[Rfam]
RNA sequence: CGGUUUCUUGCUUCAACAGUGCUUGGACGGAAGCCG
Numbered sequence: 001c002g003g004u005u006u007c008u009u010g011c012u013u014c015a016a017c018a019g020u021g022c023u024u025g026g027a028c029g030g031a032a033g034c035c036g
Stems, first nucleotide, its partner, number of pairs: 001036008010028001012027005017021001
This 36-nucleotide sequence belongs to the Rfam family "Iron response element I". Rfam links the family to the GO term response to iron ion. The literature on the family includes a 2006 paper in Science by Walden et al., "Structure of dual function iron regulatory protein 1 complexed with ferritin IRE-RNA".